[Rfam]
About this RNA
The record is a 102-nucleotide RNA sequence from Bacillus sp. SJS, which matches "Purine riboswitch aptamer" in Rfam. Gene Ontology term of the family: purine nucleobase biosynthetic process. It scores 81 bits against the family's covariance model.
RNA sequence: AUUCAUGAAAAUAUGUAUACUCGUAUAAUCUUGGAGAUAAGGUCCAUAAGUUUCUACCAAACUGCCGUAAAGAGUUUGACUACGAGAAGAAUAGAGGCAAAA
Numbered sequence: 001a002u003u004c005a006u007g008a009a010a011a012u013a014u015g016u017a018u019a020c021u022c023g024u025a026u027a028a029u030c031u032u033g034g035a036g037a038u039a040a041g042g043u044c045c046a047u048a049a050g051u052u053u054c055u056a057c058c059a060a061a062c063u064g065c066c067g068u069a070a071a072g073a074g075u076u077u078g079a080c081u082a083c084g085a086g087a088a089g090a091a092u093a094g095a096g097g098c099a100a101a102a
Base pairs, nucleotide, nucleotide: 018088020086021085022084023083024082025081029049032046033045034044035043058078059077060076061075062074063073